[Rfam]
RNA: L2-Alphaproteobacteria ribosomal protein leader
RNA sequence: GGGCACCUACGGGGGCCUACACCAAUGGCGGAUGCGUCCGCCCAAACAUAGCCCCGGGCAAAAUCCGGGGCACUGCUAACGGAAGACAGAAA
Numbered sequence: 001g002g003g004c005a006c007c008u009a010c011g012g013g014g015g016c017c018u019a020c021a022c023c024a025a026u027g028g029c030g031g032a033u034g035c036g037u038c039c040g041c042c043c044a045a046a047c048a049u050a051g052c053c054c055c056g057g058g059c060a061a062a063a064u065c066c067g068g069g070g071c072a073c074u075g076c077u078a079a080c081g082g083a084a085g086a087c088a089g090a091a092a
Stems, first nucleotide, its partner, number of pairs: 001018004006014003028076004040071004